Shown here is a 54-nucleotide sequence from Pelagibacter phage Mosig EXVC030M, a member of the family "Glutamine riboswitch aptamer (glnA leader)". The source organism's lineage runs through Viruses, Duplodnaviria, Heunggongvirae, Caudoviricetes and Kyanoviridae. The literature on the family includes a 2011 paper in RNA Biol by Ames and Breaker, "Bacterial aptamers that selectively bind glutamine". Pairs were carried over by alignment from the consensus structure, which is taken from published work.
[Rfam]
RNA sequence: AUCGUUUAUCCCGAAACGGACGGAAGUAAACCACAAAGGUUGAAGAAACGCUCU
Numbered sequence: 001a002u003c004g005u006u007u008a009u010c011c012c013g014a015a016a017c018g019g020a021c022g023g024a025a026g027u028a029a030a031c032c033a034c035a036a037a038g039g040u041u042g043a044a045g046a047a048a049c050g051c052u053c054u
Stems, first nucleotide, its partner, number of pairs: 003050005009020003023051001029041003